[Rfam]
RNA sequence: CGUCGCUGUCGCCUCACACCGAGGUCGACAGACCGGAGCGCCACCGCUCCGGACCGAAGAACAGAUAAGCGCUGACCCCUCCUAUCGGGCGUCGGCCCAACAAGAAAUUUCGGAUGUACGCGCAUCUCGGAUCGGGAUGUGAACCCCC
Number, nucleotide and partner (000 for none) at each position: 001c000002g000003u000004c000005g000006c031007u030008g029009u028010c027011g026012c024013c023014u022015c021016a000017c000018a000019c000020c000021g015022a014023g013024g012025u000026c011027g010028a009029c008030a007031g006032a000033c052034c051035g050036g049037a048038g047039c046040g000041c000042c000043a000044c000045c000046g039047c038048u037049c036050c035051g034052g033053a000054c000055c000056g000057a000058a000059g000060a000061a000062c000063a000064g000065a000066u000067a000068a000069g000070c000071g000072c000073u000074g000075a000076c000077c000078c000079c000080u000081c000082c000083u000084a000085u000086c000087g000088g000089g000090c000091g000092u000093c000094g000095g000096c000097c000098c000099a000100a000101c000102a000103a000104g000105a000106a000107a000108u000109u000110u000111c000112g000113g000114a000115u000116g000117u000118a000119c000120g000121c141122g140123c139124a138125u137126c136127u135128c134129g000130g000131a000132u000133c000134g128135g127136g126137a125138u124139g123140u122141g121142a000143a000144c000145c000146c000147c000148c000